[Rfam]
RNA sequence: CUGUAAUGAUGAGCCAGCCAUGCUAAUACUGAUGCACCAGACAGAUUGUGUGUCUCUCUGGGUGUAAGUGAGUUAAACUCAGCUUCUCACACUUACACAGUGUGCUCUGAACAGA
Number, nucleotide and partner (000 for none) at each position: 001c114002u113003g112004u111005a000006a000007u000008g000009a000010u000011g000012a000013g000014c000015c000016a000017g000018c000019c000020a000021u000022g000023c000024u000025a000026a000027u000028a000029c000030u000031g000032a000033u000034g000035c000036a000037c000038c000039a000040g000041a000042c000043a055044g054045a053046u052047u000048g000049u000050g000051u000052g046053u045054c044055u043056c000057u000058c000059u000060g000061g000062g000063u000064g000065u000066a000067a000068g000069u000070g000071a000072g000073u000074u000075a000076a000077a000078c000079u000080c000081a000082g000083c000084u000085u000086c000087u000088c000089a000090c000091a000092c000093u000094u000095a000096c000097a000098c000099a000100g000101u000102g000103u000104g000105c000106u000107c000108u000109g000110a000111a004112c003113a002114g001115a000